[Rfam]
RNA sequence: AUUCGUUAUGUCAUGUAUCCUUGAUUGAUGUAGCCUCAGAUGCUUCA
Numbered sequence: 001a002u003u004c005g006u007u008a009u010g011u012c013a014u015g016u017a018u019c020c021u022u023g024a025u026u027g028a029u030g031u032a033g034c035c036u037c038a039g040a041u042g043c044u045u046c047a
Stems, first nucleotide, its partner, number of pairs: 010025004032044003
Annotation: A member of the RNA family "Plastid-ycf3 group II-D1 intron" from Setaria viridis, 47 nucleotides long. The organism belongs to Setaria, within Eukaryota. The family has 385 seed sequences and 1,488 matches in Rfam 15.1. Rfam links the family to the GO term Group II intron splicing. Plastid rpl16 is a non-coding RNA (ncRNA) recognised in plastids. It was recognised in and intronic region of a ribosome rpl16 gene.